Shown here is a 569-nucleotide part of an RNA from Candidatus Nitrosacidicoccus tergens, a member of the family "Bacterial small subunit ribosomal RNA". Lineage of the source: Bacteria > Pseudomonadati > Chromatiales > Chromatiaceae > Candidatus Nitrosacidicoccus. Gene Ontology terms of the family: structural constituent of ribosome and ribosome.
RNA sequence: AAACUAAAGAGUUUGAUCAUGGCUCAGAUUGAACGCUGGCGGUAUGCUUAACACAUGCAAGUCGAACGGCAACAGCAUCUAAGCUUGCUUAGAUGGCUGGCGAGUGGCGGACGGGUGAGUAAUGCAUAGGAAUCUACCUCUUAGUGGGGGACAACUCGGGGAAACCCGAGCUAAUACCCCAUAUUACUCUACGGAGGAAAGCAGGGGACCUUAGGGCCUUGUGCUAAGAGAUGAGCCUAUGUCCGAUUAGCUAGUUGGUAGGGUAAAGGCCUACCAAGGCAAUGAUCGGUAGCUGGUCUGAGAGGAUGAUCAGCCACACUGGGACUGAGACACGGCCCAGACUCCUACGGGAGGCAGCAGUGGGGAAUAUUGGACAAUGGGCGUAAGCCUGAUCCAGCAAUACCGCGUGGGUGAAGAAGGCCUUCGGGUUGUAAAGCCCUUUCAGUAGGGAAGAAAAGCUAAAUACUAAUAAUAUUUAGAAUUGACGUUACUUACAGAAGAAGCACCGGCUAACUCCGUGCCAGCAGCCGCGGUAAUACGGAGGGUGCGAGCGUUAAUCGGAAUUACUG
Dot-bracket structure: ........(((((.......))))).((((.((((((.(((((((((....(((.(((..(((..((.((......(((((((....))))))).....))..)))))......(((......(((((((..((...(((((((.((((.....((((((....))))))......))))......(((....)))....((((((..........)))))).)))))))..)).)))))))(((....(((..((((((((.......)))))))))))......)))..((((((((....))))...))))))).(((((............))))).((((....))))...)))))).).....(.(((...(((((....))))).)))).)).))))))..((((......((((....)))).....))))...(.(((((...(.....((((((.........))))))......)....)))))....)..(((((......(((((.....((....)).......)))))))))).))))))))))..........